Rfam assigns this 93-nucleotide RNA from Zea mays to the family "MIR5565 microRNA precursor family".
It scores 87 bits against the family's covariance model.
[Rfam]
RNA sequence: ACUAUAGUAUUGACCUCAAUCCACAUGUAUUGAGGUGGAUUGAUGUGACACCUCAAUCCACCUCAAUACAUGUGGAUUGAGGUCAAUACUAUA
Numbered sequence: 001a002c003u004a005u006a007g008u009a010u011u012g013a014c015c016u017c018a019a020u021c022c023a024c025a026u027g028u029a030u031u032g033a034g035g036u037g038g039a040u041u042g043a044u045g046u047g048a049c050a051c052c053u054c055a056a057u058c059c060a061c062c063u064c065a066a067u068a069c070a071u072g073u074g075g076a077u078u079g080a081g082g083u084c085a086a087u088a089c090u091a092u093a
Stems, first nucleotide, its partner, number of pairs: 004092011016080017035061009045051002
Taxonomically the source falls in Zea (Eukaryota, Mesangiospermae, Liliopsida, commelinids). The base pairs follow the family's consensus structure, which was predicted with RNAalifold.